[Rfam]
RNA sequence: CCUCCUUUUCUUGGAGGGCGCCGGGCAUGCAGUCCAGGUCCCCGUUAUGUACAGAGACAGAGGGAGCGGGCUCCGGCCCCCUCGGCGUCAUGUCUUCGGUGCCGGCGGCUGCCCAUCCGCUGGUCCUAUCCUCAGACGCCGGGACAAGG
Numbered sequence: 001c002c003u004c005c006u007u008u009u010c011u012u013g014g015a016g017g018g019c020g021c022c023g024g025g026c027a028u029g030c031a032g033u034c035c036a037g038g039u040c041c042c043c044g045u046u047a048u049g050u051a052c053a054g055a056g057a058c059a060g061a062g063g064g065a066g067c068g069g070g071c072u073c074c075g076g077c078c079c080c081c082u083c084g085g086c087g088u089c090a091u092g093u094c095u096u097c098g099g100u101g102c103c104g105g106c107g108g109c110u111g112c113c114c115a116u117c118c119g120c121u122g123g124u125c126c127u128a129u130c131c132u133c134a135g136a137c138g139c140c141g142g143g144a145c146a147a148g149g
Base pairs, nucleotide, nucleotide: 002056003055004054016043017042018041020039022037024035025034083141084140085139086138087137088136102123103122104121105120106119107118108117